A member of the RNA family "ffh sRNA" from Alphaproteobacteria bacterium PA4, 52 nucleotides long. The base pairs follow the family's consensus structure, which is taken from published work. Lineage of the source: Bacteria > Pseudomonadati > Pseudomonadota > Alphaproteobacteria. Rfam classes the family as a small RNA.

Nucleotides: 052
Base pairs, nucleotide, nucleotide: 016044017043018042019041020040021039022038025035026034027033028032
Number, partner (000 for none) and nucleotide at each position: 001000g002000c003000g004000u005000c006000c007000a008000c009000g010000g011000a012000u013000g014000c015000a016044c017043g018042u019041c020040g021039g022038c023000c024000g025035g026034c027033g028032c029000g030000u031000u032028g033027c034026g035025c036000c037000c038022g039021c040020c041019g042018g043017c044016g045000c046000g047000u048000u049000u050000u051000u052000g